RNA sequence: GCUUGGAUGGCCGAGCGGUCUAAGGCGCCACACUCAAGAGUCAGCACUUGCGUGCUGAAUCCGAAAUGUGGUAUCGAAAGAUGCAUGGGUUCGAAUCCCAUUCCAAGCA
Numbered sequence: 001g002c003u004u005g006g007a008u009g010g011c012c013g014a015g016c017g018g019u020c021u022a023a024g025g026c027g028c029c030a031c032a033c034u035c036a037a038g039a040g041u042c043a044g045c046a047c048u049u050g051c052g053u054g055c056u057g058a059a060u061c062c063g064a065a066a067u068g069u070g071g072u073a074u075c076g077a078a079a080g081a082u083g084c085a086u087g088g089g090u091u092c093g094a095a096u097c098c099c100a101u102u103c104c105a106a107g108c109a
Stems, first nucleotide, its partner, number of pairs: 001108007010026003028071005085101005
Source information: tRNA: a 109-nucleotide RNA sequence from Coemansia thaxteri. Rfam links the family to the GO term triplet codon-amino acid adaptor activity. Rfam classes the family as a transfer RNA. It scores 49 bits against the family's covariance model. The literature on the family includes a 1993 paper in Trends Biochem Sci by Hou, "The tertiary structure of tRNA and the development of the genetic code".